Small nucleolar RNA SNORA79: a 144-nucleotide RNA from Callorhinchus milii. Rfam describes the family as follows. ACA65 (SNORA79) is a member of the H/ACA class of snoRNAs that guide the sites of modification of uridines to pseudouridines. This snoRNA was identified by computational screening and its expression in mouse experimentally verified by Northern blot and primer extension analysis. On this family, see Schattner et al., RNA 2006: "A computational screen for mammalian pseudouridylation guide H/ACA RNAs". Rfam classes the family as an H/ACA-box small nucleolar RNA.

[Rfam]
RNA sequence: CGAUGACUGUUCCUCCUGUAGCUUCAAGUCUCAGCUGCAGGAUUUUAUGUUGUCGUAGAUCAAACCUGACUUUAUUCACUCGGAACGCACUGGGACAUCUGGUAUUGUCCAUCUGCGUUUUGAAUUUUGCGGAGUCAGACAUGU
Numbered sequence: 001c002g003a004u005g006a007c008u009g010u011u012c013c014u015c016c017u018g019u020a021g022c023u024u025c026a027a028g029u030c031u032c033a034g035c036u037g038c039a040g041g042a043u044u045u046u047a048u049g050u051u052g053u054c055g056u057a058g059a060u061c062a063a064a065c066c067u068g069a070c071u072u073u074a075u076u077c078a079c080u081c082g083g084a085a086c087g088c089a090c091u092g093g094g095a096c097a098u099c100u101g102g103u104a105u106u107g108u109c110c111a112u113c114u115g116c117g118u119u120u121u122g123a124a125u126u127u128u129g130c131g132g133a134g135u136c137a138g139a140c141a142u143g144u
Stems, first nucleotide, its partner, number of pairs: 001055007014042005020036004068136006080123010093110005